[Rfam]
RNA: ZMP/ZTP riboswitch aptamer (pfl RNA motif)
Nucleotides: 087
Stems, first nucleotide, its partner, number of pairs: 005054001007052006015044002017075005027040004064082001066080003
Number, partner (000 for none) and nucleotide at each position: 001000a002000u003000a004000a005054g006000a007052c008051g009050u010049a011048g012047u013000a014000a015044c016043u017075g018074a019073c020072g021071a022000c023000a024000u025000a026000a027040g028039u029038g030037g031000a032000a033000c034000a035000a036000a037030c038029c039028a040027c041000g042000a043016g044015g045000g046000a047012g048011c049010u050009g051008c052007g053000c054005u055000g056000a057000a058000u059000a060000a061000a062000a063000a064082u065000a066080g067079c068078c069000g070000g071021u072020c073019g074018u075017c076000u077000g078068g079067g080066c081000a082064g083000a084000g085000a086000c087000a